[Rfam]
RNA sequence: AUCAGAAAAAGGCAAACCUAUCGAAAGGUAGCGACGCAAAGCUUUAGGGGCUAAAAAUCUACGGAUCCUGCCAGCCAGCUACCGGU
Dot-bracket structure: ...........((....(((((....)))))....))..((((...(((((.....(((....)))...)))..))))))......